[Rfam]
RNA sequence: UCGUACUAGACGGGGAAGUAGCGGAGCCUUGUAACCCGCAAUCCGCUCCAGCGGGGUUGAAUCCCUUCUAGAGGCUGCCUGUACUGUAGGGUCUGCCUUAAGUAAGUGGUGUGGACACUUGGGUCCCGCGCAAUGAGAAUCCAUGAACCAUGUCAGGUCCGGAAGGAAGCAGCAUUAAGUGGAAGCUCUCAUGUGCCGCGGGGUUGCCUGGGUCGAGCUAACUGCUUGAGUAACGCCUAUGGUAUACAGUCGAAGGAAGGUGUACGA
Numbered sequence: 001u002c003g004u005a006c007u008a009g010a011c012g013g014g015g016a017a018g019u020a021g022c023g024g025a026g027c028c029u030u031g032u033a034a035c036c037c038g039c040a041a042u043c044c045g046c047u048c049c050a051g052c053g054g055g056g057u058u059g060a061a062u063c064c065c066u067u068c069u070a071g072a073g074g075c076u077g078c079c080u081g082u083a084c085u086g087u088a089g090g091g092u093c094u095g096c097c098u099u100a101a102g103u104a105a106g107u108g109g110u111g112u113g114g115a116c117a118c119u120u121g122g123g124u125c126c127c128g129c130g131c132a133a134u135g136a137g138a139a140u141c142c143a144u145g146a147a148c149c150a151u152g153u154c155a156g157g158u159c160c161g162g163a164a165g166g167a168a169g170c171a172g173c174a175u176u177a178a179g180u181g182g183a184a185g186c187u188c189u190c191a192u193g194u195g196c197c198g199c200g201g202g203g204u205u206g207c208c209u210g211g212g213u214c215g216a217g218c219u220a221a222c223u224g225c226u227u228g229a230g231u232a233a234c235g236c237c238u239a240u241g242g243u244a245u246a247c248a249g250u251c252g253a254a255g256g257a258a259g260g261u262g263u264a265c266g267a
Stems, first nucleotide, its partner, number of pairs: 001267006009058003012030004019023001035055005064260006073251005081245010094232002098229006106222002108219003117213008125202006131193002134191005140183005150175004158167003
About this RNA
A member of the RNA family "Bacterial large signal recognition particle RNA" from Bacillus sp. J14TS2, 267 nucleotides long. NCBI's taxonomy places the organism under Bacteria, Bacillota, Caryophanales, Bacillaceae, Bacillus. About the family: The signal recognition particle (SRP) is a universally conserved ribonucleoprotein involved in the co-translational targeting of proteins to membranes.